This 94-nucleotide sequence from Penicillium nordicum belongs to the Rfam family "tRNA". It scores 52 bits against the family's covariance model. The source organism's lineage runs through Eukaryota, Ascomycota, Eurotiomycetes, Eurotiomycetidae and Penicillium.
RNA sequence: GCACUAAUGGUGUAGUGGUAACAUAUAACACUUCCAAGUGGUCACCUGACUACUAAGUUAUGUUGUGCCGGGGGUUCGAUUCCCUCUUAGUGCA
Numbered sequence: 001g002c003a004c005u006a007a008u009g010g011u012g013u014a015g016u017g018g019u020a021a022c023a024u025a026u027a028a029c030a031c032u033u034c035c036a037a038g039u040g041g042u043c044a045c046c047u048g049a050c051u052a053c054u055a056a057g058u059u060a061u062g063u064u065g066u067g068c069c070g071g072g073g074g075u076u077c078g079a080u081u082c083c084c085u086c087u088u089a090g091u092g093c094a
Base pairs, nucleotide, nucleotide: 001093002092003091004090005089006088007087010024011023012022013021026065027064028063029062030061070086071085072084073083074082